RNA: Repression of heat shock gene expression (ROSE) element
Organism: Rhizorhabdus dicambivorans
RNA sequence: CCGGGUGCCUUGCGGGCCCGGCGACCGAGAGCGCCGGCGCGUUCCGGCGCCUCUCAUGCUCAGAUUGCUCACAGGAGGAUUUGGAUAUGAGAA
Numbered sequence: 001c002c003g004g005g006u007g008c009c010u011u012g013c014g015g016g017c018c019c020g021g022c023g024a025c026c027g028a029g030a031g032c033g034c035c036g037g038c039g040c041g042u043u044c045c046g047g048c049g050c051c052u053c054u055c056a057u058g059c060u061c062a063g064a065u066u067g068c069u070c071a072c073a074g075g076a077g078g079a080u081u082u083g084g085a086u087a088u089g090a091g092a093a
Stems, first nucleotide, its partner, number of pairs: 001021006008015002028052002031050007053091006060084007068077003